[Rfam]
RNA sequence: GAAGUCUUUUACCAUCAGCGAGGUAUAGAGUUCCUACGUUCCUAUUCAGUCGUAGGAACUUAAUACCGUGCUCUUGGAGGGCUGUC
Dot-bracket structure: ...........(((..((((.(((((.((((((((((..............)))))))))).))))).))))..))).........

The family of this 86-nucleotide RNA from Drosophila rhopaloa is "mir-276 microRNA precursor family".
NCBI's taxonomy places the organism under Eukaryota, Mandibulata, Hexapoda, Neoptera, Sophophora.
The literature on the family includes a 2010 paper in BMC Genomics by Skalsky et al., "Identification of microRNAs expressed in two mosquito vectors, Aedes albopictus and Culex quinquefasciatus".